[Rfam]
RNA sequence: AAAAAGGGCUUCUGCCGUGAGUGGCACAUGGAGAGGGAGGCUGCGGCCUGUUCCUUUCCGUGCGGAAUCGCUAUCAAGAGAUUUCGGAAGCAUAAUUUUUGGGAACGGGGAAGCUGGUAAUCGCGUGUUCUGGCUCCCCA
Numbered sequence: 001a002a003a004a005a006g007g008g009c010u011u012c013u014g015c016c017g018u019g020a021g022u023g024g025c026a027c028a029u030g031g032a033g034a035g036g037g038a039g040g041c042u043g044c045g046g047c048c049u050g051u052u053c054c055u056u057u058c059c060g061u062g063c064g065g066a067a068u069c070g071c072u073a074u075c076a077a078g079a080g081a082u083u084u085c086g087g088a089a090g091c092a093u094a095a096u097u098u099u100u101g102g103g104a105a106c107g108g109g110g111a112a113g114c115u116g117g118u119a120a121u122c123g124c125g126u127g128u129u130c131u132g133g134c135u136c137c138c139c140a
Stems, first nucleotide, its partner, number of pairs: 008091005013026005027062012063086007108138004113134005119129003
A member of the RNA family "U11 spliceosomal RNA" from Anolis carolinensis, 140 nucleotides long.
Pairs were carried over by alignment from the consensus structure, which is taken from published work.
NCBI's taxonomy places the organism under Eukaryota, Teleostomi, Euteleostomi, Sarcopterygii, Anolis.